Notes: The record is a 109-nucleotide sequence from Paraburkholderia sp. BL10I2N1, which matches "Burkholderia sRNA Bp1_Cand684_SIPHT" in Rfam. Lineage of the source: Bacteria > Pseudomonadati > Pseudomonadota > Burkholderiales > Paraburkholderia. The family's RNA type in Rfam is small RNA. The match comes from Rfam's covariance-model search (52 bits). The literature on the family includes a 2012 paper in BMC Genomics by Khoo et al., "Computational discovery and RT-PCR validation of novel Burkholderia conserved and Burkholderia pseudomallei unique sRNAs".
RNA sequence: AGAAAGGUAGGUGCCGCCCCGCACAGGGGCAGCGUCAAUAGACCGGCGAGAAAGCAGGUUCAGCGAGCGACGUGGAUAGAAGUCAGCCCCACGUCCCAGCGCGUCCAAU
Numbered sequence: 001a002g003a004a005a006g007g008u009a010g011g012u013g014c015c016g017c018c019c020c021g022c023a024c025a026g027g028g029g030c031a032g033c034g035u036c037a038a039u040a041g042a043c044c045g046g047c048g049a050g051a052a053a054g055c056a057g058g059u060u061c062a063g064c065g066a067g068c069g070a071c072g073u074g075g076a077u078a079g080a081a082g083u084c085a086g087c088c089c090c091a092c093g094u095c096c097c098a099g100c101g102c103g104u105c106c107a108a109u
Base pairs, nucleotide, nucleotide: 012074013073014072016030017029018028019027020026059066060065092101093100094099
Dot-bracket structure: ...........(((.(((((.....)))))............................((....)).....))).................(((....)))........